[Rfam]
RNA sequence: UGAUGUCAGGGGCAAAAGGUGCAAAUCCGAUUGUGCUUGCACAAGAAGGAUUUGGAACUUGGGACCCGCUAAAUACGAGCAAUAAGCGUUAUUACGCGGAUUGCGAGUAUUUUAGAAACGCGAUAGCUGCAUAGCAGCGGAGCGGUUCGUGACAUCA
Numbered sequence: 001u002g003a004u005g006u007c008a009g010g011g012g013c014a015a016a017a018g019g020u021g022c023a024a025a026u027c028c029g030a031u032u033g034u035g036c037u038u039g040c041a042c043a044a045g046a047a048g049g050a051u052u053u054g055g056a057a058c059u060u061g062g063g064a065c066c067c068g069c070u071a072a073a074u075a076c077g078a079g080c081a082a083u084a085a086g087c088g089u090u091a092u093u094a095c096g097c098g099g100a101u102u103g104c105g106a107g108u109a110u111u112u113u114a115g116a117a118a119c120g121c122g123a124u125a126g127c128u129g130c131a132u133a134g135c136a137g138c139g140g141a142g143c144g145g146u147u148c149g150u151g152a153c154a155u156c157a
Stems, first nucleotide, its partner, number of pairs: 001157007010066002013063001016060003020056001022054007031044005071112006079104004086097004115148003119144003126138004

The record is a 157-nucleotide RNA from a Lachnospiraceae bacterium, which matches "Clostridiales-1 RNA" in Rfam. The match comes from Rfam's covariance-model search (108 bits). The source organism's lineage runs through Bacteria, Bacillati, Clostridia, Lachnospirales and Lachnospiraceae.